Rfam assigns this 119-nucleotide RNA sequence from Cnephaeus nilssonii to the family "U4atac minor spliceosomal RNA".
Pairs were carried over by alignment from the consensus structure, which is taken from published work.
The source organism's lineage runs through Eukaryota, Bilateria, Deuterostomia, Amniota and Cnephaeus.
On this family, see Lorkovic et al., RNA 2005: "Evolutionary conservation of minor U12-type spliceosome between plants and humans".
A search with the family's covariance model found it, with a score of 80 bits.
Rfam 15.1 lists 1,648 matches to the family in 818 species.
About the family: U4atac is an essential component of the minor U12-type spliceosome complex which is required for removal of the rarer class of eukaryotic introns (AT-AC, U12-type).
Its Rfam clan is "U4 clan".

[Rfam]
RNA sequence: ACCAUCCUUCUCUUGGGGUUGCGCUACUGUCCAAUGAACGUGUAGUGAGGACAGUACUGCUAACGCCUGAACAACACAUUCGCAUCAGGUUGGGCUCUGCUUUACCUUGAAAAAAAAAA
Numbered sequence: 001a002c003c004a005u006c007c008u009u010c011u012c013u014u015g016g017g018g019u020u021g022c023g024c025u026a027c028u029g030u031c032c033a034a035u036g037a038a039c040g041u042g043u044a045g046u047g048a049g050g051a052c053a054g055u056a057c058u059g060c061u062a063a064c065g066c067c068u069g070a071a072c073a074a075c076a077c078a079u080u081c082g083c084a085u086c087a088g089g090u091u092g093g094g095c096u097c098u099g100c101u102u103u104a105c106c107u108u109g110a111a112a113a114a115a116a117a118a119a
Base pairs, nucleotide, nucleotide: 006018007017008016009015021060022059023058026055027054028053029052030051031050032049038046039045085110086109087108090104092102093101094100095099